[Rfam]
RNA sequence: CCGCUGGUCCGGGCCCCUCUGGUGAAAGUCUUCGGCGCUUUCACGAUGUCGGACCCCAUAC
Numbered sequence: 001c002c003g004c005u006g007g008u009c010c011g012g013g014c015c016c017c018u019c020u021g022g023u024g025a026a027a028g029u030c031u032u033c034g035g036c037g038c039u040u041u042c043a044c045g046a047u048g049u050c051g052g053a054c055c056c057c058a059u060a061c
Stems, first nucleotide, its partner, number of pairs: 006055007022044008
RNA: terC RNA